[Rfam]
This 134-nucleotide sequence from Nonomuraea sp. C10 belongs to the Rfam family "c-di-AMP riboswitch aptamer (ydaO/yuaA leader)". It scores 91 bits against the family's covariance model. NCBI's taxonomy places the organism under Bacteria, Actinomycetes, Streptosporangiales, Streptosporangiaceae, Nonomuraea.
RNA sequence: AGCGCACGGCCGCCGAAUCCGCGUCUCGCGGAGCCGGGGACCCACUUCCUGGGGUGAAUCGGACGCCAGCGUCCGUAGGGGACUUCCAACUCCGAACCCGUCAGCUAACCCGGUAGGCGGCAUGGAAGCAAGGA
Numbered sequence: 001a002g003c004g005c006a007c008g009g010c011c012g013c014c015g016a017a018u019c020c021g022c023g024u025c026u027c028g029c030g031g032a033g034c035c036g037g038g039g040a041c042c043c044a045c046u047u048c049c050u051g052g053g054g055u056g057a058a059u060c061g062g063a064c065g066c067c068a069g070c071g072u073c074c075g076u077a078g079g080g081g082a083c084u085u086c087c088a089a090c091u092c093c094g095a096a097c098c099c100g101u102c103a104g105c106u107a108a109c110c111c112g113g114u115a116g117g118c119g120g121c122a123u124g125g126a127a128g129c130a131a132g133g134a
Base pairs, nucleotide, nucleotide: 011119012118013117014116018032019031020030021029022028033114034113035112036111037110038109043051044050052099053098054097060075061074062073063072078093079092080091081090